RNA sequence: GCGACCUCUGGAAAGCAGGCGGCACCCCGUGCCGCCUCACCCACGGUGCAAGCCGCGACCCGUCGCGGCGAAGCUCUCAGGUCCACGACAGAGCAGGGAGG
Numbered sequence: 001g002c003g004a005c006c007u008c009u010g011g012a013a014a015g016c017a018g019g020c021g022g023c024a025c026c027c028c029g030u031g032c033c034g035c036c037u038c039a040c041c042c043a044c045g046g047u048g049c050a051a052g053c054c055g056c057g058a059c060c061c062g063u064c065g066c067g068g069c070g071a072a073g074c075u076c077u078c079a080g081g082u083c084c085a086c087g088a089c090a091g092a093g094c095a096g097g098g099a100g101g
Base pairs, nucleotide, nucleotide: 006093007092008091009090010089017037018036019035020034021033022032039082040081041080043077046076048074052069053068054067055066056065

The family of this 101-nucleotide sequence from Longimycelium tulufanense is "Glycine riboswitch aptamer". The organism belongs to Longimycelium, within Bacteria. The literature on the family includes a 2004 paper in Science by Mandal et al., "A glycine-dependent riboswitch that uses cooperative binding to control gene expression".